Annotation: This 103-nucleotide sequence from Halobacillus sp. BAB-2008 belongs to the Rfam family "Purine riboswitch aptamer". The match comes from Rfam's covariance-model search (75 bits). The source organism's lineage runs through Bacteria, Bacillati, Bacillota, Bacillaceae and Halobacillus. Its family is annotated with purine nucleobase biosynthetic process in the Gene Ontology. The base pairs follow the family's consensus structure, which is taken from published work.

RNA sequence: CAAAUAAUAAAGCAUCACCGUCGUAUAAUUUUGGGGAUAGGGCCCAUGAGUUUCUACCAGACCGCCGUAAAUUGGUCUGACUACGUUGGUGGAUGGAUGUUGU
Number, nucleotide and partner (000 for none) at each position: 001c000002a000003a000004a000005u000006a000007a000008u000009a000010a000011a000012g000013c000014a000015u000016c000017a000018c089019c088020g087021u000022c085023g084024u083025a082026u000027a000028a000029u049030u048031u000032u046033g045034g044035g043036g000037a000038u000039a000040g000041g000042g000043c035044c034045c033046a032047u000048g030049a029050g000051u000052u000053u000054c000055u000056a000057c000058c079059a078060g077061a076062c075063c074064g073065c000066c000067g000068u000069a000070a000071a000072u000073u064074g063075g062076u061077c060078u059079g058080a000081c000082u025083a024084c023085g022086u000087u020088g019089g018090u000091g000092g000093a000094u000095g000096g000097a000098u000099g000100u000101u000102g000103u000